[Rfam]
RNA sequence: GCCUAGCUGAUCCUUGGUGUCCAAGGUACGGGCUUCAAACCCGUGGCCGGUUGACACCGGAGUGGUUCGAUUCCAGUUAAUGGGC
Number, nucleotide and partner (000 for none) at each position: 001g085002c084003c083004u082005a081006g000007c000008u000009g077010a000011u000012c026013c025014u024015u023016g022017g021018u000019g000020u000021c017022c016023a015024a014025g013026g012027u045028a044029c043030g042031g041032g040033c000034u000035u000036c000037a000038a000039a000040c032041c031042c030043g029044u028045g027046g000047c060048c059049g058050g057051u056052u000053g000054a000055c000056a051057c050058c049059g048060g047061a000062g000063u075064g074065g073066u000067u000068c000069g000070a000071u000072u000073c065074c064075a063076g000077u009078u000079a000080a000081u005082g004083g003084g002085c001
RNA: Selenocysteine transfer RNA
Organism: Octopus sinensis